RNA sequence: AGUCAUGAUGGCUAUUCUCCUGGAAUAGUGAUUGUGAUGAGCGAUAUGGCCGUGUUCCCGCACGGCCAUAUCGCGCU
Number, nucleotide and partner (000 for none) at each position: 001a000002g038003u037004c036005a035006u034007g033008a032009u000010g000011g029012c028013u027014a026015u025016u024017c023018u000019c000020c000021u000022g000023g017024a016025a015026u014027a013028g012029u011030g000031a000032u008033u007034g006035u005036g004037a003038u002039g000040a000041g074042c073043g072044a000045u070046a069047u068048g067049g066050c065051c064052g063053u062054g061055u060056u000057c000058c000059c000060g055061c054062a053063c052064g051065g050066c049067c048068a047069u046070a045071u000072c043073g042074c041075g000076c000077u000

Shown here is a 77-nucleotide sequence from Salmonella enterica, a member of the family "SymR antitoxin". On this family, see Kawano et al., Mol Microbiol 2007: "An antisense RNA controls synthesis of an SOS-induced toxin evolved from an antitoxin". Lineage of the source: Bacteria > Pseudomonadati > Pseudomonadota > Salmonella > Salmonella enterica subsp. enterica serovar Typhi. It is annotated as an antitoxin RNA. Gene Ontology term of the family: mRNA binding.